[Rfam]
RNA sequence: UCGAAGUUCCAUCUAUAAAUGGAUAAGACUUUGGUCUUAGUAUAAGUCUAGGCGAGUUUUUCAUCGGAAAGGAGAAAUAAUUAAUAAUCUUGAUAGAAAAAGAAAUUAGUUAUUGUUCAUUU
Numbered sequence: 001u002c003g004a005a006g007u008u009c010c011a012u013c014u015a016u017a018a019a020u021g022g023a024u025a026a027g028a029c030u031u032u033g034g035u036c037u038u039a040g041u042a043u044a045a046g047u048c049u050a051g052g053c054g055a056g057u058u059u060u061u062c063a064u065c066g067g068a069a070a071g072g073a074g075a076a077a078u079a080a081u082u083a084a085u086a087a088u089c090u091u092g093a094u095a096g097a098a099a100a101a102g103a104a105a106u107u108a109g110u111u112a113u114u115g116u117u118c119a120u121u122u
Stems, first nucleotide, its partner, number of pairs: 008023005068122003072118003076114005082108003088103004
Rfam assigns this 122-nucleotide RNA sequence from Eucalyptus grandis to the family "Plastid-psbA-1 3UTR RNA". Rfam describes the family as follows. Plastid psbA-1 is a non-coding RNA (ncRNA) present in plastids. It was identified in inverted repeat sequences in the 3 prime untranslate region (3UTR) of photosystem II quinone-binding protein (psbA). The source organism's lineage runs through Eukaryota, Streptophytina, Euphyllophyta, eudicotyledons and Eucalyptus. The family is grouped with related families in Rfam's "Plastid-psbA 3UTR RNA clan".